This 393-nucleotide part of an RNA from uncultured marine crenarchaeote KM3-153-F8 belongs to the Rfam family "Archaeal large subunit ribosomal RNA". NCBI's taxonomy places the organism under Archaea, Thermoproteati, Nitrososphaerota, Nitrososphaeria, Nitrosopumilales. Its Rfam clan is "LSU clan". The literature on the family includes a 2001 paper in Science by Yusupov et al., "Crystal structure of the ribosome at 5.5 A resolution". Its family is annotated with ribosome and structural constituent of ribosome in the Gene Ontology.

RNA sequence: GGUAGUAGCAGCGUAGUCGAGUGAGAAUCUCGAUCACCGUAUGGGCAAGGUUUUCCUGGCAACGCGUCGUCGACCAGGAGUAAGCCGAUCCUAAGUGUAAUCCGAAAGGCGUUGCACGAAGAGGGAAACAGGUUAAUAUUCCUGUGCCUUGGUUGAUCCGUUAUUAUCUAAAAUAACUGCUUCGAGAUAUGGCGUGCAGAGCCGUCGCUCUGUUUAAUUUUCUUAGGUAAAGGGAGUGUCGUAAUGACGAGAACUUUAUUGAGGGAUGAAUAGCCAAUCAUUGGGUUGGUUCGCUAAAUUCUGGGGGACAAUGAAAAUUAUUUUAGAGAGGAUCUGUCAAGUUCGUACCCAGAUCCGACACUGGUGUCCCUAGGCUAGAAACCUAAGGUGUAU
Numbered sequence: 001g002g003u004a005g006u007a008g009c010a011g012c013g014u015a016g017u018c019g020a021g022u023g024a025g026a027a028u029c030u031c032g033a034u035c036a037c038c039g040u041a042u043g044g045g046c047a048a049g050g051u052u053u054u055c056c057u058g059g060c061a062a063c064g065c066g067u068c069g070u071c072g073a074c075c076a077g078g079a080g081u082a083a084g085c086c087g088a089u090c091c092u093a094a095g096u097g098u099a100a101u102c103c104g105a106a107a108g109g110c111g112u113u114g115c116a117c118g119a120a121g122a123g124g125g126a127a128a129c130a131g132g133u134u135a136a137u138a139u140u141c142c143u144g145u146g147c148c149u150u151g152g153u154u155g156a157u158c159c160g161u162u163a164u165u166a167u168c169u170a171a172a173a174u175a176a177c178u179g180c181u182u183c184g185a186g187a188u189a190u191g192g193c194g195u196g197c198a199g200a201g202c203c204g205u206c207g208c209u210c211u212g213u214u215u216a217a218u219u220u221u222c223u224u225a226g227g228u229a230a231a232g233g234g235a236g237u238g239u240c241g242u243a244a245u246g247a248c249g250a251g252a253a254c255u256u257u258a259u260u261g262a263g264g265g266a267u268g269a270a271u272a273g274c275c276a277a278u279c280a281u282u283g284g285g286u287u288g289g290u291u292c293g294c295u296a297a298a299u300u301c302u303g304g305g306g307g308a309c310a311a312u313g314a315a316a317a318u319u320a321u322u323u324u325a326g327a328g329a330g331g332a333u334c335u336g337u338c339a340a341g342u343u344c345g346u347a348c349c350c351a352g353a354u355c356c357g358a359c360a361c362u363g364g365u366g367u368c369c370c371u372a373g374g375c376u377a378g379a380a381a382c383c384u385a386a387g388g389u390g391u392a393u
Stems, first nucleotide, its partner, number of pairs: 016034006035390004043369004049349002054079006063072002086345003090124002095117006102109002128145005148341006155334001173321003180307004185302003190296005196213005219266003228258005238248003279284001355364002371385004
Dot-bracket structure: ...............((((((.......))))))((((....((((..((...((((((...((......)).))))))......(((.((...((((((.((....))..)))))).....))...(((((........)))))..((((((.(.................(((....((((.(((..(((((.(((((........))))).....(((......(((((.....(((.....))).....))))).....)))............(....).......)))))...))).))))...........)))............).)))))).)))..)).....((......)).)))).((((.......)))).))))...